[Rfam]
RNA sequence: GUUAUCCUCAUAAAAGGUUAAGAGUAGGGUCAGUGACAACUCGGACAUCAUGAAUUGUGGAGUCGUAUAUUCCUCCCCAAAACAUCGCUUUUCCUACCAAGAGUAAAGCACCUAUUCCUAAGAAAAUUAAGUGAUGUCCUAAGAUAAUGCCAAGUUUUUUCGGGUCGUCCCA
Numbered sequence: 001g002u003u004a005u006c007c008u009c010a011u012a013a014a015a016g017g018u019u020a021a022g023a024g025u026a027g028g029g030u031c032a033g034u035g036a037c038a039a040c041u042c043g044g045a046c047a048u049c050a051u052g053a054a055u056u057g058u059g060g061a062g063u064c065g066u067a068u069a070u071u072c073c074u075c076c077c078c079a080a081a082a083c084a085u086c087g088c089u090u091u092u093c094c095u096a097c098c099a100a101g102a103g104u105a106a107a108g109c110a111c112c113u114a115u116u117c118c119u120a121a122g123a124a125a126a127u128u129a130a131g132u133g134a135u136g137u138c139c140u141a142a143g144a145u146a147a148u149g150c151c152a153a154g155u156u157u158u159u160u161c162g163g164g165u166c167g168u169c170c171c172a
Base pairs, nucleotide, nucleotide: 131168132167133166134165135164138163139162141160142159